A member of the RNA family "Small nucleolar RNA SNORD45", 71 nucleotides long. Gene Ontology terms of the family: nucleolus and RNA processing. The family's consensus secondary structure was predicted with PFOLD.

RNA sequence: GGUCAAUGAUGUCGUGGCAUGUAUCAGCUGAAUCCAAAGUUGAUGUGAGUUCCAAAAUUAUACUGAGACUU
Numbered sequence: 001g002g003u004c005a006a007u008g009a010u011g012u013c014g015u016g017g018c019a020u021g022u023a024u025c026a027g028c029u030g031a032a033u034c035c036a037a038a039g040u041u042g043a044u045g046u047g048a049g050u051u052c053c054a055a056a057a058u059u060a061u062a063c064u065g066a067g068a069c070u071u
Base pairs, nucleotide, nucleotide: 001070002069003068004067